Bacterial RNase P class A: a 363-nucleotide RNA from Ilyomonas limi.
Lineage of the source: Bacteria > Bacteroidota > Chitinophagia > Chitinophagaceae > Ilyomonas.
It is annotated as a ribozyme.

RNA sequence: CUACAAACCCGCGCUAUCGUGGCGCUUUAAAGUGCCAAGGAAAGUCCGGACAGCACAGGGCAACCCACCGGUGAACAGCCGGCUGUCUUGCUCAAGGCGAGAUAAGAGAUAGUGCCACAGAAAAUAACUGUGGUCCCUCCUUAAGCGGGACCAUGAGGGUGAAAAUGUGAGGUAAGAGCUCACAGCUUUGUACAGUAAUGUGCAAAGCGGGCAAACCUUGGGUGCUGUAAUGCCAUGUAAAGGCUCGCCAGCAGGGCGGCCCGCCCGAUGAGCCAGGGUAGGCAGCUACAUCGCGGCAGUAAUGCCGGGAGCAGAUAAAUGAUAGUGUAAAAACAGAAUCCGGCUUACGAGGUUUGUAGCUUU
Numbered sequence: 001c002u003a004c005a006a007a008c009c010c011g012c013g014c015u016a017u018c019g020u021g022g023c024g025c026u027u028u029a030a031a032g033u034g035c036c037a038a039g040g041a042a043a044g045u046c047c048g049g050a051c052a053g054c055a056c057a058g059g060g061c062a063a064c065c066c067a068c069c070g071g072u073g074a075a076c077a078g079c080c081g082g083c084u085g086u087c088u089u090g091c092u093c094a095a096g097g098c099g100a101g102a103u104a105a106g107a108g109a110u111a112g113u114g115c116c117a118c119a120g121a122a123a124a125u126a127a128c129u130g131u132g133g134u135c136c137c138u139c140c141u142u143a144a145g146c147g148g149g150a151c152c153a154u155g156a157g158g159g160u161g162a163a164a165a166u167g168u169g170a171g172g173u174a175a176g177a178g179c180u181c182a183c184a185g186c187u188u189u190g191u192a193c194a195g196u197a198a199u200g201u202g203c204a205a206a207g208c209g210g211g212c213a214a215a216c217c218u219u220g221g222g223u224g225c226u227g228u229a230a231u232g233c234c235a236u237g238u239a240a241a242g243g244c245u246c247g248c249c250a251g252c253a254g255g256g257c258g259g260c261c262c263g264c265c266c267g268a269u270g271a272g273c274c275a276g277g278g279u280a281g282g283c284a285g286c287u288a289c290a291u292c293g294c295g296g297c298a299g300u301a302a303u304g305c306c307g308g309g310a311g312c313a314g315a316u317a318a319a320u321g322a323u324a325g326u327g328u329a330a331a332a333a334c335a336g337a338a339u340c341c342g343g344c345u346u347a348c349g350a351g352g353u354u355u356g357u358a359g360c361u362u363u
Base pairs, nucleotide, nucleotide: 001359002358003357004356005355006354007353008352009351011348012327013326014325015324016323017322018321020037021036022035023034024033025032026031042346043345044344046343047342048341049340050339051227052226053225054224058262059261060260061259063223064222065221066220067219068082069081070080071079072078083106084104085103086102087101088100089099090098091097107218108217112216113215114212115211116210128158129157130154131153132152133151134150135149136148137147166184167183168182169181170180171179187206188205189204190203191202192201193200194199231284232283233282234281242274243273244272245271246270254266255265256264257263291310292309294307295306296305297304298303